[Rfam]
RNA sequence: GGAUGUUCUGAAGACCUGCUCGCUAGGCCACGCACGGAGAACAUGGGUUUCUCAAGGGCCUCUGCGCCCGCCUAGGGGAAAGUCCCCGGACCGCCGGCAGAGAGUGCCGGGCGCUGCCCGCGCCCCUGCUCGCCCCCACCUCACGCAUUCGCCGCCGAGACGCCCCUGGGCCGAGCGGGUGAGCGCGGGGCGGGCUCUCGUCACGGCCACAGACACGCAGGUAGUGCGCAGGCGCACGCGCACCAACAGAACGGGGCUCACUCUCAGGCCAUC
Numbered sequence: 001g002g003a004u005g006u007u008c009u010g011a012a013g014a015c016c017u018g019c020u021c022g023c024u025a026g027g028c029c030a031c032g033c034a035c036g037g038a039g040a041a042c043a044u045g046g047g048u049u050u051c052u053c054a055a056g057g058g059c060c061u062c063u064g065c066g067c068c069c070g071c072c073u074a075g076g077g078g079a080a081a082g083u084c085c086c087c088g089g090a091c092c093g094c095c096g097g098c099a100g101a102g103a104g105u106g107c108c109g110g111g112c113g114c115u116g117c118c119c120g121c122g123c124c125c126c127u128g129c130u131c132g133c134c135c136c137c138a139c140c141u142c143a144c145g146c147a148u149u150c151g152c153c154g155c156c157g158a159g160a161c162g163c164c165c166c167u168g169g170g171c172c173g174a175g176c177g178g179g180u181g182a183g184c185g186c187g188g189g190g191c192g193g194g195c196u197c198u199c200g201u202c203a204c205g206g207c208c209a210c211a212g213a214c215a216c217g218c219a220g221g222u223a224g225u226g227c228g229c230a231g232g233c234g235c236a237c238g239c240g241c242a243c244c245a246a247c248a249g250a251a252c253g254g255g256g257c258u259c260a261c262u263c264u265c266a267g268g269c270c271a272u273c
Stems, first nucleotide, its partner, number of pairs: 002273004007268005014222006023075006037053005081258002084256004096108004109125006127194001129192001134190004139185001140183004152178004162171003224243006
RNase MRP: a 273-nucleotide RNA from Nyctibius bracteatus. On this family, see Li et al., RNA 2002: "Phylogenetic analysis of the structure of RNase MRP RNA in yeasts". Pairs were carried over by alignment from the consensus structure, which is taken from published work. Lineage of the source: Eukaryota > Eumetazoa > Chordata > Archelosauria > Nyctibius. Rfam links the family to the GO terms rRNA processing, ribonuclease MRP complex and ribonuclease MRP activity.